[Rfam]
RNA: Bacterial RNase P class A
RNA sequence: CCAGGGGGCCGGGCAGCCGCGUGACCGCAAGGUCCCGAGGAAAGUCCGGGCUCCACGAAACAAGGGUGGCGGGUAACGCCCGCCGGGCGACCUGCUUGCAGGGAAGCUCAGGGAAAGUGCCACAGAGAGCAGACCGCCCCAUUCCAUGGGGUAAGGGUGAAAGGGUGCGGUAAGAGCGCACCGCGCGACUGGUAACAGGAGCGGCACGGCAAACCCCACCCGGAGCAAGACCGAAUAGGGGCGGCGCGUCGGUUCUUCGGAACCGGUAGAUGUGUUUCGCAUCGACCGCCCGGGUUGGUUGCUUGAGCCACGCAGCAAUGCAUGGCCUAGAUGAAUGGCUGCCACCGCCGAUACGGUGCGAUUUUCGCAUACCGUCGGCGGGACAGAACCCGGCUUACAGGCCCCCUGGCAUA
Numbered sequence: 001c002c003a004g005g006g007g008g009c010c011g012g013g014c015a016g017c018c019g020c021g022u023g024a025c026c027g028c029a030a031g032g033u034c035c036c037g038a039g040g041a042a043a044g045u046c047c048g049g050g051c052u053c054c055a056c057g058a059a060a061c062a063a064g065g066g067u068g069g070c071g072g073g074u075a076a077c078g079c080c081c082g083c084c085g086g087g088c089g090a091c092c093u094g095c096u097u098g099c100a101g102g103g104a105a106g107c108u109c110a111g112g113g114a115a116a117g118u119g120c121c122a123c124a125g126a127g128a129g130c131a132g133a134c135c136g137c138c139c140c141a142u143u144c145c146a147u148g149g150g151g152u153a154a155g156g157g158u159g160a161a162a163g164g165g166u167g168c169g170g171u172a173a174g175a176g177c178g179c180a181c182c183g184c185g186c187g188a189c190u191g192g193u194a195a196c197a198g199g200a201g202c203g204g205c206a207c208g209g210c211a212a213a214c215c216c217c218a219c220c221c222g223g224a225g226c227a228a229g230a231c232c233g234a235a236u237a238g239g240g241g242c243g244g245c246g247c248g249u250c251g252g253u254u255c256u257u258c259g260g261a262a263c264c265g266g267u268a269g270a271u272g273u274g275u276u277u278c279g280c281a282u283c284g285a286c287c288g289c290c291c292g293g294g295u296u297g298g299u300u301g302c303u304u305g306a307g308c309c310a311c312g313c314a315g316c317a318a319u320g321c322a323u324g325g326c327c328u329a330g331a332u333g334a335a336u337g338g339c340u341g342c343c344a345c346c347g348c349c350g351a352u353a354c355g356g357u358g359c360g361a362u363u364u365u366c367g368c369a370u371a372c373c374g375u376c377g378g379c380g381g382g383a384c385a386g387a388a389c390c391c392g393g394c395u396u397a398c399a400g401g402c403c404c405c406c407u408g409g410c411a412u413a
Stems, first nucleotide, its partner, number of pairs: 001409010011398001012343007020037002023034004042396003046393005051225004060277001062275001064221005069083005084111001085109004112216002117214002119210003134156002136152007164182006183205001184203003189198003229300004239291006269283005307326004312321003